[Rfam]
RNA: Potassium channel RNA editing signal
RNA sequence: UUUGCAGCUAUGGCGAUAUGGUGCCGAAGACAAUCGCAGGAAAGAUUUUUGGCUCCAUCUGCUCCCUGAGUGGGGUUUUGGUAAUAGCCCUGCCUGUCCCUGUCAUUGUGUCCAAC
Numbered sequence: 001u002u003u004g005c006a007g008c009u010a011u012g013g014c015g016a017u018a019u020g021g022u023g024c025c026g027a028a029g030a031c032a033a034u035c036g037c038a039g040g041a042a043a044g045a046u047u048u049u050u051g052g053c054u055c056c057a058u059c060u061g062c063u064c065c066c067u068g069a070g071u072g073g074g075g076u077u078u079u080g081g082u083a084a085u086a087g088c089c090c091u092g093c094c095u096g097u098c099c100c101u102g103u104c105a106u107u108g109u110g111u112c113c114a115a116c
Stems, first nucleotide, its partner, number of pairs: 002115001004113001007112001009110005015104004020099002023097002039079004051065002